[Rfam]
RNA sequence: GGAGUCUGAAGGUAAGAUGGAAAUAGUACGAGAGGAACUUUCCGUCGUCGCCUCUGGUCGAUCGGUUGUCCGACAGGGCAGUGCCGAGCAGCUACGCGAUAAGGGAUAAAAGCUGAAAGCAUCUAAGCUUGAAACCUGACCCGAAAAGAGACUCCGUUGAGGACACGGGUAAAAGACCCGCUUGAUAGGUCCGGGAUGUAAGCACGAAGGCAACGACGUGUUCAGUCCGCGGAUACUAACGUCCGAUGCC
Numbered sequence: 001g002g003a004g005u006c007u008g009a010a011g012g013u014a015a016g017a018u019g020g021a022a023a024u025a026g027u028a029c030g031a032g033a034g035g036a037a038c039u040u041u042c043c044g045u046c047g048u049c050g051c052c053u054c055u056g057g058u059c060g061a062u063c064g065g066u067u068g069u070c071c072g073a074c075a076g077g078g079c080a081g082u083g084c085c086g087a088g089c090a091g092c093u094a095c096g097c098g099a100u101a102a103g104g105g106a107u108a109a110a111a112g113c114u115g116a117a118a119g120c121a122u123c124u125a126a127g128c129u130u131g132a133a134a135c136c137u138g139a140c141c142c143g144a145a146a147a148g149a150g151a152c153u154c155c156g157u158u159g160a161g162g163a164c165a166c167g168g169g170u171a172a173a174a175g176a177c178c179c180g181c182u183u184g185a186u187a188g189g190u191c192c193g194g195g196a197u198g199u200a201a202g203c204a205c206g207a208a209g210g211c212a213a214c215g216a217c218g219u220g221u222u223c224a225g226u227c228c229g230c231g232g233a234u235a236c237u238a239a240c241g242u243c244c245g246a247u248g249c250c
Stems, first nucleotide, its partner, number of pairs: 001155007011141003016046008047100005055094003062087005067080005103137003110130005161244004166180004186238003189234005194228003202221005209214001
The family of this 250-nucleotide part of an RNA from Methanoculleus marisnigri is "Archaeal large subunit ribosomal RNA". The base pairs follow the family's consensus structure, which is taken from published work. It is one of the family's seed sequences.